[Rfam]
RNA: SAM riboswitch aptamer (S box leader)
RNA sequence: CACUUAUCAAGAAAGACUGAGGGACUAGGCCCUGUGACGUCUUAGCAACCUGUAAAAGCUGGUGCUAAUUCCUAGCCUCGAAUUUAUUCGAGGAAAAGAUGAGCC
Numbered sequence: 001c002a003c004u005u006a007u008c009a010a011g012a013a014a015g016a017c018u019g020a021g022g023g024a025c026u027a028g029g030c031c032c033u034g035u036g037a038c039g040u041c042u043u044a045g046c047a048a049c050c051u052g053u054a055a056a057a058g059c060u061g062g063u064g065c066u067a068a069u070u071c072c073u074a075g076c077c078u079c080g081a082a083u084u085u086a087u088u089c090g091a092g093g094a095a096a097a098g099a100u101g102a103g104c105c
Stems, first nucleotide, its partner, number of pairs: 003103006013043005021032003026074004044066004049062002051058001070097001076093005